RNA: int-alpA RNA
RNA sequence: CCCACACCUAGGCGCCGGAGCCGAAAGCCCGUUCCCUGCGGGUUGGUGUGGGCAUUCAAUACAGGG
Numbered sequence: 001c002c003c004a005c006a007c008c009u010a011g012g013c014g015c016c017g018g019a020g021c022c023g024a025a026a027g028c029c030c031g032u033u034c035c036c037u038g039c040g041g042g043u044u045g046g047u048g049u050g051g052g053c054a055u056u057c058a059a060u061a062c063a064g065g066g
Stems, first nucleotide, its partner, number of pairs: 001052008011022003028042004034066005